Eukaryotic large subunit ribosomal RNA: a 408-nucleotide part of an RNA from Cryptomonas paramaecium.
Pairs were carried over by alignment from the consensus structure, which is taken from published work.
The organism belongs to Cryptomonas, within Eukaryota.
Nucleotides: 408
Stems, first nucleotide, its partner, number of pairs: 001373004009368008018359003035059005044049001060130002063127006070118004076109002079106012131135001143352007150344002154168003171207008182194004211338003215269003220266002222262004227258001230257003238249004270288006289293001309325005386403005
Number, partner (000 for none) and nucleotide at each position: 001373u002372a003371g004370a005000u006000a007000a008000a009368g010367g011366u012365g013364a014363g015362u016361a017000a018359g019358g020357g021000a022000a023000g024000u025000c026000g027000g028000c029000a030000a031000a032000a033000u034000g035059g036058a037057u038056c039055c040000g041000u042000a043000a044049c045000u046000u047000c048000g049044g050000g051000a052000a053000a054000a055039g056038g057037a058036u059035u060130g061129g062000c063127u064126c065125u066124a067123a068122g069000a070118g071117u072116u073115g074000a075000c076109u077108g078000u079106u080105u081104u082103c083102u084101u085100u086099c087098u088097c089096u090095u091000u092000u093000a094000a095090a096089a097088g098087a099086g100085a101084a102083a103082g104081a105080a106079a107000a108077c109076g110000u111000u112000u113000a114000u115073c116072a117071a118070c119000a120000g121000u122068c123067u124066u125065a126064g127063a128000a129061c130060u131135g132000g133000u134000a135131c136000g137000g138000a139000c140000u141000a142000g143352g144351g145350g146349a147348a148347u149346c150344c151343g152000a153000c154168u155167g156166u157000u158000u159000a160000a161000u162000u163000a164000a165000a166156a167155c168154a169000u170000a171207g172206c173205a174204u175203u176202g177201c178200g179000a180000u181000g182194g183193c184192c185191a186000g187000a188000a189000a190000c191185u192184g193183g194182u195000g196000u197000u198000g199000a200178c201177g202176u203175a204174a205173u206172g207171u208000g209000a210000u211338u212337u213336c214000u215269g216268c217267c218000c219000a220266g221265u222262g223261c224260u225259c226000u227258g228000a229000a230257u231256g232255u233000c234000a235000a236000u237000a238249u239248g240247a241246a242000g243000a244000a245000a246241u247240u248239c249238a250000a251000g252000g253000a254000a255232g256231c257230g258227c259225g260224g261223g262222u263000a264000a265221a266220c267217g268216g269215c270288g271287g272286g273285a274284g275283u276000a277000a278000c279000u280000a281000u282000g283275a284274c285273u286272c287271u288270c289293u290000u291000a292000a293289g294000g295000u296000a297000g298000c299000c300000a301000a302000a303000u304000g305000c306000c307000u308000c309325g310324u311323c312322a313321u314000c315000u316000a317000a318000u319000u320000a321313g322312u323311g324310a325309c326000g327000c328000g329000c330000a331000u332000g333000a334000a335000u336213g337212g338211a339000u340000g341000a342000a343151c344150g345000a346149g347148a348147u349146u350145c351144c352143c353000a354000c355000u356000g357020u358019c359018c360000c361016u362015a363014c364013u365012c366011a367010u368009u369000u370004u371003c372002u373001a374000g375000c376000g377000a378000a379000a380000c381000c382000a383000c384000a385000g386403c387402c388401a389400a390399g391000g392000g393000a394000a395000c396000g397000g398000g399390c400389u401388u402387g403386g404000a405000a406000g407000a408000a